Shown here is an 84-nucleotide sequence, a member of the family "DUF3800-IX RNA". From the family's description: Actinobacteria, Firmicutes (1 example), Nitrospirae, Proteobacteria, Verrucomicrobia (1 example). The base pairs follow the family's consensus structure, which is taken from published work.
[Rfam]
Nucleotides: 084
Base pairs, nucleotide, nucleotide: 001079002078003077005076006075007074008073009072010071011070016035017034018033019032020031021030022029038067039066040065
Number, partner (000 for none) and nucleotide at each position: 001079u002078c003077c004000u005076g006075c007074c008073c009072c010071g011070u012000g013000a014000a015000a016035g017034g018033u019032c020031g021030c022029c023000g024000a025000u026000u027000g028000u029022g030021g031020c032019g033018g034017c035016c036000c037000c038067g039066c040065c041000c042000c043000c044000g045000u046000c047000u048000g049000g050000a051000a052000g053000u054000g055000a056000u057000g058000a059000c060000g061000g062000u063000g064000c065040g066039g067038c068000u069000a070011g071010c072009g073008g074007g075006g076005c077003g078002g079001g080000u081000u082000g083000c084000u